Shown here is a 97-nucleotide RNA from Urocynchramus pylzowi, a member of the family "mir-490 microRNA precursor family". Pairs were carried over by alignment from the consensus structure, which was predicted with RNAalifold. Rfam links the family to the GO terms miRNA-mediated post-transcriptional gene silencing and RISC complex. The literature on the family includes a 2005 paper in Nat Genet by Bentwich et al., "Identification of hundreds of conserved and nonconserved human microRNAs".

RNA sequence: UCAUGAGUUCAUGGUUCGGCACCAUGGAUCUCCAGGUGGGUCAAGGCUAUAGAGACACACCAACCUGGAGGACUCCAUGCUGCCGAGCUGUCCAUAA
Numbered sequence: 001u002c003a004u005g006a007g008u009u010c011a012u013g014g015u016u017c018g019g020c021a022c023c024a025u026g027g028a029u030c031u032c033c034a035g036g037u038g039g040g041u042c043a044a045g046g047c048u049a050u051a052g053a054g055a056c057a058c059a060c061c062a063a064c065c066u067g068g069a070g071g072a073c074u075c076c077a078u079g080c081u082g083c084c085g086a087g088c089u090g091u092c093c094a095u096a097a
Stems, first nucleotide, its partner, number of pairs: 016086006023079006029071009039061003